Rfam assigns this 114-nucleotide RNA sequence from Natribacillus halophilus to the family "ylbH leader". The pairing is the family consensus, mapped onto this sequence. About the family: This family is a putative regulatory RNA structure that is found upstream of the ylbH gene in B. subtilis and related low GC Gram-positive bacteria.
RNA sequence: AAAAUAAAAACCGCGUACCGUCCCGGUACGCGGCGCCUGUUGUAAACAUUACAGGCAAUGGGAGAGGAGAAACCGGAGGAAGCGCUUAUGGGGAAAUGUAAGCGUUCUCCGCGG
Numbered sequence: 001a002a003a004a005u006a007a008a009a010a011c012c013g014c015g016u017a018c019c020g021u022c023c024c025g026g027u028a029c030g031c032g033g034c035g036c037c038u039g040u041u042g043u044a045a046a047c048a049u050u051a052c053a054g055g056c057a058a059u060g061g062g063a064g065a066g067g068a069g070a071a072a073c074c075g076g077a078g079g080a081a082g083c084g085c086u087u088a089u090g091g092g093g094a095a096a097u098g099u100a101a102g103c104g105u106u107c108u109c110c111g112c113g114g
Stems, first nucleotide, its partner, number of pairs: 011033009034062001036060001038058001044050001074111004079107003084103005
Record summary
Taxonomically the source falls in Natribacillus (Bacteria, Bacillati, Bacillota, Bacilli).